[Rfam]
RNA: MIR2617 microRNA precursor family
Organism: Medicago truncatula
RNA sequence: UGUGACAUGCCCGUUGGGUUGUACUCUGAUGUUGUGUGUUUAAUUAUUAUUAAAUUACUUUUGGGUAACGGGGUGUUACA
Numbered sequence: 001u002g003u004g005a006c007a008u009g010c011c012c013g014u015u016g017g018g019u020u021g022u023a024c025u026c027u028g029a030u031g032u033u034g035u036g037u038g039u040u041u042a043a044u045u046a047u048u049a050u051u052a053a054a055u056u057a058c059u060u061u062u063g064g065g066u067a068a069c070g071g072g073g074u075g076u077u078a079c080a
Stems, first nucleotide, its partner, number of pairs: 001080008010072006